[Rfam]
RNA sequence: CCACCUGUCAUUUUGCUCGAACCAGAGUUAUUCUUGGCGUCAUCCAUCUCUCGAAGGAUGUUUGCUAGGUUGGUGAGCAAAGUUUCAGGUGU
Numbered sequence: 001c002c003a004c005c006u007g008u009c010a011u012u013u014u015g016c017u018c019g020a021a022c023c024a025g026a027g028u029u030a031u032u033c034u035u036g037g038c039g040u041c042a043u044c045c046a047u048c049u050c051u052c053g054a055a056g057g058a059u060g061u062u063u064g065c066u067a068g069g070u071u072g073g074u075g076a077g078c079a080a081a082g083u084u085u086c087a088g089g090u091g092u
Base pairs, nucleotide, nucleotide: 002091003090004089005088006087007086010083011082012081013080014079016077017076018075019074022073023072024071